This 169-nucleotide RNA from Arthrobacter sp. CAU 1506 belongs to the Rfam family "c-di-AMP riboswitch aptamer (ydaO/yuaA leader)". This family represents a conserved RNA structure found upstream of the ydaO and yuaA genes in Bacillus subtilis and related genes in other bacteria. The base pairs follow the family's consensus structure.

RNA sequence: CGUUCGCAAAGACUUCGCGGGCAGAGGCGGGGGAACCAAAUUCGGGUUCCGUACAGGAACCCUUGGGGUUAAGUCGUUACAUCUCUCAGGUUUUGCCGGGGAGAAGUGCGGCCGGGUGCACUCCCAUCCGAAUCCGACAGCUCACCUCGCAGGCAUUGGGAGAGGCCUU
Dot-bracket structure: (...(.(................).)((((((....((.........................))(((.....((((..............................))))..((((........))))...))).........)))))).).................

The source organism's lineage runs through Bacteria, Bacillati, Micrococcales, Micrococcaceae and Arthrobacter.